[Rfam]
RNA sequence: AGGUCGGGAGCGUGCCAUUGGGCGGGCGCGCAUGAAUGGACCUCGCCCGUCUUGAGGUUUCAGUGCGCCUCCGCCGGUGACCCGACGGCGCGUGGG
Dot-bracket structure: (((((....(((((((........))))))).......)))))........................((.((((((.........))))).).)).

Annotation
A member of the RNA family "Rhodo-rpoB RNA" from Roseicyclus elongatus, 96 nucleotides long. The family's RNA type in Rfam is cis-regulatory element. The match comes from Rfam's covariance-model search (59 bits). NCBI's taxonomy places the organism under Bacteria, Pseudomonadota, Alphaproteobacteria, Roseobacteraceae, Roseicyclus elongatus. The family's consensus secondary structure is taken from published work.